[Rfam]
Source information:
The family of this 98-nucleotide sequence from Braya humilis is "Plastid-psbM 3UTR RNA". By type it is a cis-regulatory element. Rfam describes the family as follows. Plastid psbM is a non-coding RNA (ncRNA) recognised in plastids. It was found in the three prime untranslated region (3UTR) of psbM gene, its 3UTR location suggests a role in transcript maturation. Pairs were carried over by alignment from the consensus structure, which was predicted with LocARNA. Rfam's curators put it in the seed alignment. Rfam 15.1 lists 627 matches to the family in 337 species. The organism belongs to Braya, within Eukaryota.
RNA sequence: AGGGGCCCGCUAGUAUGGUAGAAAGAGAUCUCUUUCUACCAUACUAGCCAUUAUGGUUAUUGUAAUGUAUUGUAAUGUAUAAAGUACAAGUGAAAUAU
Numbered sequence: 001a002g003g004g005g006c007c008c009g010c011u012a013g014u015a016u017g018g019u020a021g022a023a024a025g026a027g028a029u030c031u032c033u034u035u036c037u038a039c040c041a042u043a044c045u046a047g048c049c050a051u052u053a054u055g056g057u058u059a060u061u062g063u064a065a066u067g068u069a070u071u072g073u074a075a076u077g078u079a080u081a082a083a084g085u086a087c088a089a090g091u092g093a094a095a096u097a098u
Stems, first nucleotide, its partner, number of pairs: 009048018